[Rfam]
RNA: permuted transfer-messenger RNA
RNA sequence: GGCGCUAAACUGCGUGACAGAAUAGGCUUUACGGACCCGGGGGCGGUACCCGGCGGCUCCACCAAAUUUAUCGGUUGUCCGACUCAGACAAUCUUCGUGGGGCCGAAAUAGGAUCGACGUGAGCAGUAAAAGUCAAUGUGGGCGCUCGGCAUGGUACCACCGCAUCGGGCCAAUGUUUGUAAAUGCAAACGACAACAAUGCUCCGGUUGCUGCUGCCGCCUAA
Numbered sequence: 001g002g003c004g005c006u007a008a009a010c011u012g013c014g015u016g017a018c019a020g021a022a023u024a025g026g027c028u029u030u031a032c033g034g035a036c037c038c039g040g041g042g043g044c045g046g047u048a049c050c051c052g053g054c055g056g057c058u059c060c061a062c063c064a065a066a067u068u069u070a071u072c073g074g075u076u077g078u079c080c081g082a083c084u085c086a087g088a089c090a091a092u093c094u095u096c097g098u099g100g101g102g103c104c105g106a107a108a109u110a111g112g113a114u115c116g117a118c119g120u121g122a123g124c125a126g127u128a129a130a131a132g133u134c135a136a137u138g139u140g141g142g143c144g145c146u147c148g149g150c151a152u153g154g155u156a157c158c159a160c161c162g163c164a165u166c167g168g169g170c171c172a173a174u175g176u177u178u179g180u181a182a183a184u185g186c187a188a189a190c191g192a193c194a195a196c197a198a199u200g201c202u203c204c205g206g207u208u209g210c211u212g213c214u215g216c217c218g219c220c221u222a223a
Base pairs, nucleotide, nucleotide: 001146002145003144004143005142015135016134017133018132027123028122029121031120032119033118037053038052039051040050041049054105055104056103057102058101059100060099061098062097147162148161149160
Dot-bracket structure: (((((.........((((........(((.(((...(((((.......)))))(((((((((..................................)))))))))............))))))........))))......)))))(((..........))).............................................................